[Rfam]
RNA sequence: GAUUUUCAUACUAUAUAAAAUCAAAAAUAUACUGAAAAAUGAUGAAAAAAUUAGAUUUAUUUUCAUUUUUACUUGAUCCAAUAAACAAAGAAAACCACCAUUUUCAGAAAAAUAGUGGUUUCGUUU
Dot-bracket structure: (.((.....(.((.....................(((((((..((((.((......)).)))))))))))...)).).....)).).....(((((((.(((((....))))).))))))).....
Numbered sequence: 001g002a003u004u005u006u007c008a009u010a011c012u013a014u015a016u017a018a019a020a021u022c023a024a025a026a027a028u029a030u031a032c033u034g035a036a037a038a039a040u041g042a043u044g045a046a047a048a049a050a051u052u053a054g055a056u057u058u059a060u061u062u063u064c065a066u067u068u069u070u071a072c073u074u075g076a077u078c079c080a081a082u083a084a085a086c087a088a089a090g091a092a093a094a095c096c097a098c099c100a101u102u103u104u105c106a107g108a109a110a111a112a113u114a115g116u117g118g119u120u121u122c123g124u125u126u
Stems, first nucleotide, its partner, number of pairs: 001086001003084002010077001012075002035070007044063004049058002092121007100113005
Streptococcus sRNA 34: a 126-nucleotide RNA sequence from Streptococcus ictaluri. Rfam classes the family as a small RNA. Lineage of the source: Bacteria > Bacillota > Lactobacillales > Streptococcus > Streptococcus ictaluri. The match comes from Rfam's covariance-model search (56 bits). On this family, see Tesorero et al., PLoS One 2013: "Novel regulatory small RNAs in Streptococcus pyogenes".